[Rfam]
RNA sequence: GUGAACAAUUAUUUCCGAGUUAAACAGCCUACAGCAAUUGCCAUGGUUGUUAACCGCUAGGUAUAAAUGGAAACGUUUGUGCCUCCCUUCUUGGAAAGGAAAUAUUGAUUUCAUCAA
Numbered sequence: 001g002u003g004a005a006c007a008a009u010u011a012u013u014u015c016c017g018a019g020u021u022a023a024a025c026a027g028c029c030u031a032c033a034g035c036a037a038u039u040g041c042c043a044u045g046g047u048u049g050u051u052a053a054c055c056g057c058u059a060g061g062u063a064u065a066a067a068u069g070g071a072a073a074c075g076u077u078u079g080u081g082c083c084u085c086c087c088u089u090c091u092u093g094g095a096a097a098g099g100a101a102a103u104a105u106u107g108a109u110u111u112c113a114u115c116a117a
Stems, first nucleotide, its partner, number of pairs: 003111002011103006019054004024050006034041002059084011085094002
This 117-nucleotide RNA sequence from Pelotomaculum schinkii belongs to the Rfam family "Molybdenum/Tungsten riboswitch aptamer (Moco RNA motif)". The family's consensus secondary structure is taken from published work.